[Rfam]
RNA sequence: AGCAUCGUUUUCUUGGGGCUGCGCUGCUGUCCAAUGAGCGCCUGGUAAGGGCGGGACUGCCGGCGCCUAAACAACACACCCGCGUCGACUAGAGCUUUGCUUUACCUUGGUGCAGCUUUUACCCAC
Numbered sequence: 001a002g003c004a005u006c007g008u009u010u011u012c013u014u015g016g017g018g019c020u021g022c023g024c025u026g027c028u029g030u031c032c033a034a035u036g037a038g039c040g041c042c043u044g045g046u047a048a049g050g051g052c053g054g055g056a057c058u059g060c061c062g063g064c065g066c067c068u069a070a071a072c073a074a075c076a077c078a079c080c081c082g083c084g085u086c087g088a089c090u091a092g093a094g095c096u097u098u099g100c101u102u103u104a105c106c107u108u109g110g111u112g113c114a115g116c117u118u119u120u121a122c123c124c125a126c
Stems, first nucleotide, its partner, number of pairs: 006018001008016002021060003027054006038046002082113006090104006